ZMP/ZTP riboswitch aptamer (pfl RNA motif): a 107-nucleotide RNA from Streptomyces taklimakanensis. It scores 44 bits against the family's covariance model.

RNA sequence: GCGGCGGGCCGUGACUGGCGCAUUCGGAUGGAACCGACCAUCGGGGAGCGGCCCUGCGCACGUGCCGCGUCACGUGCGGACAAGAGCCGCGCGCCUGGGCCGCCCGG
Numbered sequence: 001g002c003g004g005c006g007g008g009c010c011g012u013g014a015c016u017g018g019c020g021c022a023u024u025c026g027g028a029u030g031g032a033a034c035c036g037a038c039c040a041u042c043g044g045g046g047a048g049c050g051g052c053c054c055u056g057c058g059c060a061c062g063u064g065c066c067g068c069g070u071c072a073c074g075u076g077c078g079g080a081c082a083a084g085a086g087c088c089g090c091g092c093g094c095c096u097g098g099g100c101c102g103c104c105c106g107g
Stems, first nucleotide, its partner, number of pairs: 003057001006054007015045002017095005028041004086100003